RNA sequence: CUUUCCCUGCGGUGUUCGCUAAGGCAUACAUUCCUUUGAACCAAUAAGUUCGCUUAAGGUUUCCGGGAGUUUACAGUGGGCGCGAGCGUUCUCUUUUGAAUGCACCCGAAGCUGUCCAAGGAGACCGCCUUGUCUGACAAGGUUCAAGCGGAUUGAGCCUCAAACGGCACCAGCGGGGAUCCC
Numbered sequence: 001c002u003u004u005c006c007c008u009g010c011g012g013u014g015u016u017c018g019c020u021a022a023g024g025c026a027u028a029c030a031u032u033c034c035u036u037u038g039a040a041c042c043a044a045u046a047a048g049u050u051c052g053c054u055u056a057a058g059g060u061u062u063c064c065g066g067g068a069g070u071u072u073a074c075a076g077u078g079g080g081c082g083c084g085a086g087c088g089u090u091c092u093c094u095u096u097u098g099a100a101u102g103c104a105c106c107c108g109a110a111g112c113u114g115u116c117c118a119a120g121g122a123g124a125c126c127g128c129c130u131u132g133u134c135u136g137a138c139a140a141g142g143u144u145c146a147a148g149c150g151g152a153u154u155g156a157g158c159c160u161c162a163a164a165c166g167g168c169a170c171c172a173g174c175g176g177g178g179a180u181c182c183c
Stems, first nucleotide, its partner, number of pairs: 004179007012170004017166002032152003035148001037146006058126003062122003067117001069116001073115005082105001087102005
Overview:
The record is a 183-nucleotide sequence from Neisseria canis, which matches "6S / SsrS RNA" in Rfam. Taxonomically the source falls in Neisseria (Bacteria, Pseudomonadati, Pseudomonadota, Neisseriales). By type it is a non-coding RNA gene. The literature on the family includes a 2017 paper in Molecular Cell by Chen et al., "6S RNA Mimics B-Form DNA to Regulate Escherichia coli RNA Polymerase". The match comes from Rfam's covariance-model search (68 bits). From the family's description: E. coli 6S RNA was the first non coding RNA to be sequenced, but its function was unknown until recently. It consists of 184 nucleotides that fold into an extended hairpin structure with a large single-stranded internal bulge.